[Rfam]
RNA sequence: ACGGAUGGCUGGAUGACCGCGGGUUCUGGGCGCGCAAGCGUACUGGGACGCGAGGAAAGUCCGGACUCCAUUGAACAACAGUGCCGGGUAACGCCCGGCGGGGGCAACCCUAGGGACAGCGCCACAGAGAACAGACCGCCCUACGCGCGCGCAAGCGCACGCUGGGGUAAGGGUGAAACGGUGGAGUAAGAGCCCACCGCGCGAGCGGCAACGCAAGCGGCACGGCAAGCCCCACUGGGAGCAAUGCCAAAUAGGGGUUUCGUGUGAGGCACUGCGUUCGCGCAGAGUGAUCAUAGGGAGGUUCAAGCCCGAGAGACCCGGGUUGGCAGCUUGAGCGUAUUGGUAACAAUGCGCCUAGAGGAAUGGUCAUCGAGGGGGCAACCCCAGACAAAAUCCGGCUUAUAGGCCAUCCGUGCAU
Numbered sequence: 001a002c003g004g005a006u007g008g009c010u011g012g013a014u015g016a017c018c019g020c021g022g023g024u025u026c027u028g029g030g031c032g033c034g035c036a037a038g039c040g041u042a043c044u045g046g047g048a049c050g051c052g053a054g055g056a057a058a059g060u061c062c063g064g065a066c067u068c069c070a071u072u073g074a075a076c077a078a079c080a081g082u083g084c085c086g087g088g089u090a091a092c093g094c095c096c097g098g099c100g101g102g103g104g105c106a107a108c109c110c111u112a113g114g115g116a117c118a119g120c121g122c123c124a125c126a127g128a129g130a131a132c133a134g135a136c137c138g139c140c141c142u143a144c145g146c147g148c149g150c151g152c153a154a155g156c157g158c159a160c161g162c163u164g165g166g167g168u169a170a171g172g173g174u175g176a177a178a179c180g181g182u183g184g185a186g187u188a189a190g191a192g193c194c195c196a197c198c199g200c201g202c203g204a205g206c207g208g209c210a211a212c213g214c215a216a217g218c219g220g221c222a223c224g225g226c227a228a229g230c231c232c233c234a235c236u237g238g239g240a241g242c243a244a245u246g247c248c249a250a251a252u253a254g255g256g257g258u259u260u261c262g263u264g265u266g267a268g269g270c271a272c273u274g275c276g277u278u279c280g281c282g283c284a285g286a287g288u289g290a291u292c293a294u295a296g297g298g299a300g301g302u303u304c305a306a307g308c309c310c311g312a313g314a315g316a317c318c319c320g321g322g323u324u325g326g327c328a329g330c331u332u333g334a335g336c337g338u339a340u341u342g343g344u345a346a347c348a349a350u351g352c353g354c355c356u357a358g359a360g361g362a363a364u365g366g367u368c369a370u371c372g373a374g375g376g377g378g379c380a381a382c383c384c385c386a387g388a389c390a391a392a393a394u395c396c397g398g399c400u401u402a403u404a405g406g407c408c409a410u411c412c413g414u415g416c417a418u
Base pairs, nucleotide, nucleotide: 001414002413003412004411005410006409007408008407009406010405011403012371013370014369015368016367017366018365020052021051023049024048025047026046027045028044057401058400059399061398062397063396064395065394066241067240068239069238077302079237080236081235082234083233084098085097086096087095088094099113100111101110102109103108114232115231119230120229121226122225123224136172137171138168139167140166141165142164143163145162146161147160180198181197182196183195184194199221200219201218202217205214206213207212245328246327247326248325255319256318257317258316259315260314296310297309298308335354336353337352338351339350340349341348342347
Rfam assigns this 418-nucleotide sequence from Pacificibacter marinus to the family "Bacterial RNase P class A". By type it is a ribozyme. The source organism's lineage runs through Bacteria, Pseudomonadati, Pseudomonadota, Roseobacteraceae and Pacificibacter. The base pairs follow the family's consensus structure, which is taken from published work.